Shown here is a 102-nucleotide sequence from Lysinibacillus halotolerans, a member of the family "Purine riboswitch aptamer". It scores 90 bits against the family's covariance model. A reference for the family is Mandal et al. (2003), "Riboswitches Control Fundamental Biochemical Pathways in Bacillus subtilis and Other Bacteria", Cell. Taxonomically the source falls in Lysinibacillus (Bacteria, Bacillati, Bacillota, Bacilli). Clan: Purine riboswitches.
RNA sequence: UAAGCUAUUAAUAUUUUCACUCAUAUAAUGGCGAGGAUAUGGCUCGCAAGUUUCUACCGACUUACCGUAAAUAAGUCGACUAUGAGAGGCAAUGUUUAGAUU
Numbered sequence: 001u002a003a004g005c006u007a008u009u010a011a012u013a014u015u016u017u018c019a020c021u022c023a024u025a026u027a028a029u030g031g032c033g034a035g036g037a038u039a040u041g042g043c044u045c046g047c048a049a050g051u052u053u054c055u056a057c058c059g060a061c062u063u064a065c066c067g068u069a070a071a072u073a074a075g076u077c078g079a080c081u082a083u084g085a086g087a088g089g090c091a092a093u094g095u096u097u098a099g100a101u102u
Base pairs, nucleotide, nucleotide: 018088020086021085022084023083024082025081029049031047032046033045034044035043058078059077060076061075062074063073064072